[Rfam]
Nucleotides: 366
Stems, first nucleotide, its partner, number of pairs: 043359001045357003049350001051348003056343003064079006084335003088331004095104003114291003127149004132145005161265002165260001190206005210254003223241002226238004
Number, partner (000 for none) and nucleotide at each position: 001000c002000a003000c004000a005000g006000c007000c008000c009000u010000g011000c012000c013000u014000c015000c016000a017000a018000u019000c020000c021000u022000c023000a024000a025000a026000c027000a028000c029000c030000c031000c032000u033000u034000u035000a036000u037000g038000u039000g040000c041000u042000g043359u044000a045357u046356u047355a048000a049350u050000c051348c052347a053346u054000a055000u056343a057342a058341g059000a060000a061000a062000a063000u064079c065078u066077c067076u068075u069074u070000u071000a072000a073000u074069g075068a076067g077066g078065a079064g080000u081000g082000a083000u084335a085334u086333a087000c088331u089330u090329a091328u092000g093000a094000a095104c096103u097102c098000u099000c100000u101000a102097g103096a104095g105000u106000c107000a108000u109000a110000a111000u112000u113000a114291g115290a116289g117000c118000a119000a120000a121000c122000u123000a124000a125000u126000u127149g128148a129147a130146g131000u132145u133144g134143u135142g136141u137000u138000u139000u140000g141136a142135c143134a144133c145132a146130c147129u148128u149127u150000c151000c152000a153000a154000a155000u156000u157000c158000a159000c160000g161265g162264g163000u164000a165260c166000u167000g168000c169000a170000u171000g172000a173000c174000a175000u176000a177000u178000u179000c180000a181000c182000a183000a184000c185000a186000c187000u188000a189000c190206u191205g192204c193203u194202g195000c196000a197000c198000a199000c200000c201000g202194u203193g204192g205191u206190g207000a208000c209000a210254g211253c212252a213000a214000a215000a216000u217000c218000a219000u220000u221000a222000g223241g224240c225000u226238a227237a228236u229235a230000a231000c232000a233000c234000u235229u236228a237227u238226u239000u240224g241223c242000a243000u244000u245000c246000u247000g248000a249000u250000c251000a252212u253211g254210c255000c256000a257000g258000c259000a260165g261000c262000g263000g264162c265161c266000g267000u268000u269000a270000a271000a272000u273000g274000c275000u276000g277000c278000c279000u280000c281000a282000a283000c284000c285000a286000g287000c288000a289116c290115u291114c292000g293000u294000u295000u296000a297000c298000u299000c300000a301000g302000a303000a304000a305000g306000u307000u308000u309000c310000c311000a312000c313000u314000g315000a316000a317000a318000g319000a320000u321000a322000u323000u324000a325000a326000c327000a328091g329090u330089a331088a332000u333086u334085a335084u336000u337000a338000g339000u340000a341058c342057u343056u344000u345000a346053g347052u348051g349000a350049a351000u352000c353000u354000c355047u356046g357045a358000c359043g360000u361000u362000a363000a364000g365000g366000a
Source information: The record is a 366-nucleotide RNA from Erythrocercus mccallii, which matches "ncRNA Repressor of NFAT (nuclear factor of activated T cells)" in Rfam. The family has 24 seed sequences and 522 matches in Rfam 15.1. The organism belongs to Erythrocercus, within Eukaryota. By type it is a non-coding RNA gene.